Nucleotides: 133
Base pairs, nucleotide, nucleotide: 001057002056003055004054005053013047014046015045016044017043018042019041021039022038067126068125069124070123071122072121080114081113082112083111084110085109086108095104096103
Number, partner (000 for none) and nucleotide at each position: 001057g002056c003055a004054u005053c006000u007000g008000a009000a010000u011000c012000u013047u014046u015045c016044c017043c018042a019041g020000u021039u022038c023000u024000u025000g026000c027000g028000a029000u030000a031000c032000a033000g034000u035000g036000c037000u038022g039021g040000a041019c042018u043017g044016g045015g046014g047013a048000u049000a050000c051000a052000a053005g054004a055003u056002g057001c058000a059000a060000c061000a062000g063000g064000a065000a066000a067126g068125c069124a070123g071122a072121g073000c074000a075000a076000a077000u078000c079000c080114a081113g082112g083111c084110a085109a086108g087000c088000u089000c090000c091000c092000u093000u094000g095104c096103a097000c098000c099000a100000c101000a102000g103096u104095g105000g106000g107000a108086c109085u110084u111083g112082u113081c114080u115000c116000u117000a118000c119000g120000c121072c122071u123070u124069u125068g126067c127000a128000a129000c130000a131000g132000u133000u
Rfam assigns this 133-nucleotide sequence from Chionis minor to the family "Small nucleolar RNA SNORA55".
It is annotated as an H/ACA-box small nucleolar RNA.
About the family: ACA55 is a member of the H/ACA class of snoRNA that guide the sites of modification of uridines to pseudouridines.
Rfam 15.1 lists 1,476 matches to the family in 616 species.
NCBI's taxonomy places the organism under Eukaryota, Sauropsida, Saurischia, Coelurosauria, Chionis.
Rfam links the family to the GO terms nucleolus and RNA processing.